The record is a 102-nucleotide RNA sequence from Priestia taiwanensis, which matches "Purine riboswitch aptamer" in Rfam. A search with the family's covariance model found it, with a score of 82 bits. The organism belongs to Priestia, within Bacteria.
RNA sequence: AAUAUAUAGAAUUAUAAUACUCGUAUAAUUUUGGAGAUAUGGUCCAUGAGUUUCUACGAAGCUACCGUAAAUGGCUUUGCUACGAGAGUGUGUAAUACUGAC
Numbered sequence: 001a002a003u004a005u006a007u008a009g010a011a012u013u014a015u016a017a018u019a020c021u022c023g024u025a026u027a028a029u030u031u032u033g034g035a036g037a038u039a040u041g042g043u044c045c046a047u048g049a050g051u052u053u054c055u056a057c058g059a060a061g062c063u064a065c066c067g068u069a070a071a072u073g074g075c076u077u078u079g080c081u082a083c084g085a086g087a088g089u090g091u092g093u094a095a096u097a098c099u100g101a102c
Stems, first nucleotide, its partner, number of pairs: 018088001020086006029049002032046004058078007